This 94-nucleotide RNA from Sorghum bicolor belongs to the Rfam family "MIR5387 microRNA precursor family". The source organism's lineage runs through Eukaryota, Viridiplantae, Spermatophyta, Mesangiospermae and Sorghum. Rfam 15.1 lists 1,029 matches to the family in 9 species. Pairs were carried over by alignment from the consensus structure, which was predicted with RNAalifold. The match comes from Rfam's covariance-model search (78 bits). Its family is annotated with RISC complex and miRNA-mediated post-transcriptional gene silencing in the Gene Ontology.
RNA sequence: CUGUGGCUCUGGCCGGUGCUAAAGGGUCUCUGCCCCGACAGCACCUGUCAGUAGCCGUUGGGCAGGACCCUUUAGCACCGGUUCAUAUUACAAA
Dot-bracket structure: ..((((....(((((((((((((((((.((...(((.((.....((...)).....)).)))..)))))))))))))))))))....))))...